[Rfam]
RNA sequence: GGUCGGGUAGCGAACGGAAUAUACAAUACCCUUUUGGGGAAAACUGUUGGCCGUCCUAUGUGGUGUUCAAGUACCCGACCGCCCAUCU
Numbered sequence: 001g002g003u004c005g006g007g008u009a010g011c012g013a014a015c016g017g018a019a020u021a022u023a024c025a026a027u028a029c030c031c032u033u034u035u036g037g038g039g040a041a042a043a044c045u046g047u048u049g050g051c052c053g054u055c056c057u058a059u060g061u062g063g064u065g066u067u068c069a070a071g072u073a074c075c076c077g078a079c080c081g082c083c084c085a086u087c088u
Stems, first nucleotide, its partner, number of pairs: 001080009013048004020042001029038003050064005
Record summary
Rfam assigns this 88-nucleotide RNA from Arsenophonus endosymbiont of Aleurodicus floccissimus to the family "sRNA-Xcc1". The base pairs follow the family's consensus structure, which was predicted with RNAalifold. The family's RNA type in Rfam is small RNA. For this family Rfam cites "HrpG, a key hrp regulatory protein of Xanthomonas campestris pv. vesicatoria is homologous to two-component response regulators" (Wengelnik et al., Mol Plant Microbe Interact, 1996). A search with the family's covariance model found it, with a score of 66 bits. The organism belongs to Arsenophonus, within Bacteria.